[Rfam]
RNA sequence: CUCUUAUCGAGAGUGGCGGAGGGAAUAGGCCCUGUGAAGCCCGGCAACCUGCAAACAAAUUGUGUUUGAGAAGGUGCUACAUCCUACAGAUCAUAAUGAUCUGGAAGAUAAGAG
Dot-bracket structure: ((((((((....(.(((...(((..[[[[)))......))))((((.(((.(((((.......))))).)..))))))...(]]]]((((((.....))))))..)))))))))
Numbered sequence: 001c002u003c004u005u006a007u008c009g010a011g012a013g014u015g016g017c018g019g020a021g022g023g024a025a026u027a028g029g030c031c032c033u034g035u036g037a038a039g040c041c042c043g044g045c046a047a048c049c050u051g052c053a054a055a056c057a058a059a060u061u062g063u064g065u066u067u068g069a070g071a072a073g074g075u076g077c078u079a080c081a082u083c084c085u086a087c088a089g090a091u092c093a094u095a096a097u098g099a100u101c102u103g104g105a106a107g108a109u110a111a112g113a114g
Stems, first nucleotide, its partner, number of pairs: 001114008013042001015041003021032003026086004043078004048074002050070001052068005082106001087103006
The record is a 114-nucleotide RNA from Lederbergia lenta, which matches "SAM riboswitch aptamer (S box leader)" in Rfam. The source organism's lineage runs through Bacteria, Bacilli, Caryophanales, Bacillaceae and Lederbergia. The match comes from Rfam's covariance-model search (91 bits).